[Rfam]
Nucleotides: 078
Stems, first nucleotide, its partner, number of pairs: 003076002006073013020058002022055006031048003
Number, partner (000 for none) and nucleotide at each position: 001000g002000g003076u004075u005000c006073u007072g008071g009070u010069u011068a012067g013066u014065u015064u016063u017062g018061c019000u020058g021057g022055u023054u024053u025052g026051c027050a028000g029000u030000c031048a032047g033046c034000g035000u036000u037000u038000g039000u040000a041000u042000c043000a044000u045000a046033g047032c048031u049000g050027u051026g052025c053024a054023a055022a056000u057021c058020c059000a060000u061018g062017c063016a064015a065014a066013a067012c068011u069010g070009a071008u072007c073006g074000u075004a076003a077000c078000g

Shown here is a 78-nucleotide sequence from Carassius auratus, a member of the family "mir-19 microRNA precursor family". Its family is annotated with miRNA-mediated post-transcriptional gene silencing and RISC complex in the Gene Ontology. Its Rfam clan is "mir-19 clan". The literature on the family includes a 2001 paper in Science by Lagos-Quintana et al., "Identification of novel genes coding for small expressed RNAs". The family has 106 seed sequences and 2,337 matches in Rfam 15.1.